[Rfam]
Notes
Rfam assigns this 402-nucleotide sequence from Fonsecaea erecta to the family "Nuclear RNase P". A search with the family's covariance model found it, with a score of 45 bits. It is annotated as a ribozyme.
RNA sequence: UCCAUCCGCUGCGUUCUCUGCUACAAACAACGACUUGCUCCUGUUCUCCCAACAGUCGAGUUCUCGUUUUCUUCAUUGCAGAUGAGAAAUUCGGAGUAAUCUUCAACCUUGGACCUCUGUCUUCGAGUCACUGUGUGAUUUUCGAGGCACAUGGUACUGCCCGCGAGGGCCCGGCACGAUUGUUCCCGUGCUCGCAAUUUGGCAUCAGAAAUGUACAGGGCCUCGAGACCGGCACCCACGCGGUGUUUGUGUCUUGAGGGAUUCCCUUUGGAAGAGCCGUUGCGGAGAUUGUCUGGGGGUCACCGAGGGUGUCCUUCCUUACUUUAGUGCAAUCGCAGCGGAAACCUAUCAUUCCUCUCCUGGGGAUUGAUAGGGUUUCAAUUCGAUUCCGAUUACUCUGGA
Dot-bracket structure: (((([.[..[[.....((((.........((((..............................))))...........)))).........(((((....((((......................................................((((....))))..(((((..........))))).((((...(((..............(((............................................)))........))).))))))))..............................................]]..].](((((((.........................))))))).......))))).......))))